[Rfam]
RNA sequence: CGGGGAUCCGCAGCCUCCCCGUCAGAUGGAUGUCCAUCCAAGCGCUCG
Numbered sequence: 001c002g003g004g005g006a007u008c009c010g011c012a013g014c015c016u017c018c019c020c021g022u023c024a025g026a027u028g029g030a031u032g033u034c035c036a037u038c039c040a041a042g043c044g045c046u047c048g
Stems, first nucleotide, its partner, number of pairs: 001021006012046003025038005